[Rfam]
Nucleotides: 134
Stems, first nucleotide, its partner, number of pairs: 002053004019048002025042004078123003089111006
Number, partner (000 for none) and nucleotide at each position: 001000u002053u003052g004051c005050a006000g007000c008000c009000a010000a011000u012000u013000a014000a015000g016000c017000c018000a019048a020047c021000c022000c023000u024000g025042c026041u027040c028039u029000u030000u031000c032000c033000c034000c035000c036000g037000u038000g039028g040027g041026a042025g043000c044000c045000c046000c047020g048019u049000g050005u051004g052003c053002a054000a055000u056000g057000g058000c059000u060000g061000c062000a063000a064000a065000c066000a067000g068000c069000a070000g071000c072000c073000u074000c075000c076000u077000u078123g079122g080121u081000a082000g083000u084000g085000c086000a087000c088000g089111c090110a091109g092108c093107c094106u095000c096000u097000u098000g099000c100000c101000u102000g103000u104000a105000u106094g107093g108092g109091u110090u111089g112000c113000c114000c115000u116000a117000a118000g119000g120000g121080a122079c123078u124000u125000c126000g127000a128000g129000a130000c131000a132000g133000c134000c